[Rfam]
About this RNA
Shown here is a 106-nucleotide RNA from Pontibacter ummariensis, a member of the family "SAM riboswitch aptamer (S box leader)". The family has 457 seed sequences and 9,625 matches in Rfam 15.1.

RNA sequence: UUCUUAUCAAGAAAGACCGAGGGAUAGGGCCCUACGACGUCUUAGCAACCUUGUAAAAGCUUGGUGCUAAUUCCCUUCCCAGUGUUUUGCUGGGUGAAGAUAAGAA
Numbered sequence: 001u002u003c004u005u006a007u008c009a010a011g012a013a014a015g016a017c018c019g020a021g022g023g024a025u026a027g028g029g030c031c032c033u034a035c036g037a038c039g040u041c042u043u044a045g046c047a048a049c050c051u052u053g054u055a056a057a058a059g060c061u062u063g064g065u066g067c068u069a070a071u072u073c074c075c076u077u078c079c080c081a082g083u084g085u086u087u088u089g090c091u092g093g094g095u096g097a098a099g100a101u102a103a104g105a106a
Stems, first nucleotide, its partner, number of pairs: 001106008013043005021032003026076004044068004049064002052059001072098001078094005